[Rfam]
RNA sequence: AGUUUUGCACAGUGGCAGUAUCAUAGCCAAUGAGGUUUAUCUGAGGUGAGAUUAUUGCUAAUUAAAAAAUAAUGUGUAAAACCAGUUUUCAUAAAUUAAAUAAUUUUUUUGAAACUACUAUAUGCACUCUAAAG
Dot-bracket structure: ...................(((.(.(((.....((.....))..)))).)))...............................(((.((.(.(((((....))))).)..)).)))..........((....))

U4 spliceosomal RNA: a 134-nucleotide RNA sequence from Neogale vison. Pairs were carried over by alignment from the consensus structure, which is taken from published work. From the family's description: U4 small nuclear RNA (U4 snRNA) is a component of the major U2-dependent spliceosome. NCBI's taxonomy places the organism under Eukaryota, Metazoa, Tetrapoda, Carnivora, Neogale. By type it is a spliceosomal small nuclear RNA.